This 80-nucleotide RNA sequence from Sus scrofa belongs to the Rfam family "mir-708 microRNA precursor family". It is one of the family's seed sequences. Rfam links the family to the GO terms RISC complex and miRNA-mediated post-transcriptional gene silencing. The source organism's lineage runs through Eukaryota, Opisthokonta, Gnathostomata, Teleostomi and Sus. The base pairs follow the family's consensus structure, which was predicted with RNAalifold.

RNA sequence: CCCUCAAGGAGCUUACAAUCUAGCUGGGGGUGAAUGACUUGCACAUGAACGCAACUAGACUGUGAGCUUCUAGAGGGCAG
Numbered sequence: 001c002c003c004u005c006a007a008g009g010a011g012c013u014u015a016c017a018a019u020c021u022a023g024c025u026g027g028g029g030g031u032g033a034a035u036g037a038c039u040u041g042c043a044c045a046u047g048a049a050c051g052c053a054a055c056u057a058g059a060c061u062g063u064g065a066g067c068u069u070c071u072a073g074a075g076g077g078c079a080g
Stems, first nucleotide, its partner, number of pairs: 001077005007071011019059005025043002028040004